[Rfam]
RNA: GP20-b RNA
RNA sequence: GGCUGACUACGAGCGUAAUCGGUGGAGUAGAAAGAGAUGCGACCUCGUAUAAAAGCGUA
Numbered sequence: 001g002g003c004u005g006a007c008u009a010c011g012a013g014c015g016u017a018a019u020c021g022g023u024g025g026a027g028u029a030g031a032a033a034g035a036g037a038u039g040c041g042a043c044c045u046c047g048u049a050u051a052a053a054a055g056c057g058u059a
Base pairs, nucleotide, nucleotide: 002014003013004012007025008024009023010022034046035045036044